RNA sequence: AGGAAUUAAUGCUCUUUAAUAUUUAUACAGAAGGAUCCCUAGUAAAAAGGGAUCCCCC
Numbered sequence: 001a002g003g004a005a006u007u008a009a010u011g012c013u014c015u016u017u018a019a020u021a022u023u024u025a026u027a028c029a030g031a032a033g034g035a036u037c038c039c040u041a042g043u044a045a046a047a048a049g050g051g052a053u054c055c056c057c058c
Stems, first nucleotide, its partner, number of pairs: 033055008